[Rfam]
RNA: int-alpA RNA
Organism: Smithella sp. D17
RNA sequence: GCGGGGGCUAGGCCGACGGGCCGAAAGCCGGGAACCCUACCCGGUUGCCCUUGCUUAACCAUAGGG
Numbered sequence: 001g002c003g004g005g006g007g008c009u010a011g012g013c014c015g016a017c018g019g020g021c022c023g024a025a026a027g028c029c030g031g032g033a034a035c036c037c038u039a040c041c042c043g044g045u046u047g048c049c050c051u052u053g054c055u056u057a058a059c060c061a062u063a064g065g066g
Stems, first nucleotide, its partner, number of pairs: 001054008011022004028044005035066005